[Rfam]
RNA sequence: UGUCUACAUUUGCGGGGAUGGGUGGGUAAAGAGAACCCUCGUGGGUUCGUACCGAGCGAAGCGACAAACGUAGGCUUGCCUGCGGCCCGAAGGGGCAUUAUCCCUCCCUCACCGACA
Numbered sequence: 001u002g003u004c005u006a007c008a009u010u011u012g013c014g015g016g017g018a019u020g021g022g023u024g025g026g027u028a029a030a031g032a033g034a035a036c037c038c039u040c041g042u043g044g045g046u047u048c049g050u051a052c053c054g055a056g057c058g059a060a061g062c063g064a065c066a067a068a069c070g071u072a073g074g075c076u077u078g079c080c081u082g083c084g085g086c087c088c089g090a091a092g093g094g095g096c097a098u099u100a101u102c103c104c105u106c107c108c109u110c111a112c113c114g115a116c117a
Stems, first nucleotide, its partner, number of pairs: 015108004020103002023100001040094001046091004053063002069084006
RNA: RtT RNA
Organism: Bacterioplanes sanyensis